[Rfam]
RNA: UnaL2 LINE 3' element
RNA sequence: CACUAACUGUAAGUCGCUCUGGAUAAGAGCGUCUGCUAAAUGACUCACU
Numbered sequence: 001c002a003c004u005a006a007c008u009g010u011a012a013g014u015c016g017c018u019c020u021g022g023a024u025a026a027g028a029g030c031g032u033c034u035g036c037u038a039a040a041u042g043a044c045u046c047a048c049u
Stems, first nucleotide, its partner, number of pairs: 008038001009036003015031006